[Rfam]
RNA: ZMP/ZTP riboswitch aptamer (pfl RNA motif)
Organism: Amycolatopsis marina
RNA sequence: CCCCGCACUAGCGACUGGCGCCAUCGAGGUGGAGCACCACCGGGGAGCGACGAAUGGCCGGCACCGCGCGCCUGGGUGUCUGUG
Numbered sequence: 001c002c003c004c005g006c007a008c009u010a011g012c013g014a015c016u017g018g019c020g021c022c023a024u025c026g027a028g029g030u031g032g033a034g035c036a037c038c039a040c041c042g043g044g045g046a047g048c049g050a051c052g053a054a055u056g057g058c059c060g061g062c063a064c065c066g067c068g069c070g071c072c073u074g075g076g077u078g079u080c081u082g083u084g
Stems, first nucleotide, its partner, number of pairs: 004052002009050001011048002015044002017072005029040004061079005